[Rfam]
RNA: mir-135 microRNA precursor family
Organism: Mastacembelus armatus
RNA sequence: AUGCCUCCGUGUACUAUGGCUUUUUAUUCCUAUGUGAUGAUGAAAAAUAUUCGCAUAGGAAUAGAAGCCAUUAUACACGUGGUGAG
Numbered sequence: 001a002u003g004c005c006u007c008c009g010u011g012u013a014c015u016a017u018g019g020c021u022u023u024u025u026a027u028u029c030c031u032a033u034g035u036g037a038u039g040a041u042g043a044a045a046a047a048u049a050u051u052c053g054c055a056u057a058g059g060a061a062u063a064g065a066a067g068c069c070a071u072u073a074u075a076c077a078c079g080u081g082g083u084g085a086g
Base pairs, nucleotide, nucleotide: 002085005082006081008079009078010077011076012075013074016071017070018069019068020067021066022065023064026062027061028060029059030058031057032056033055034054035053036052037051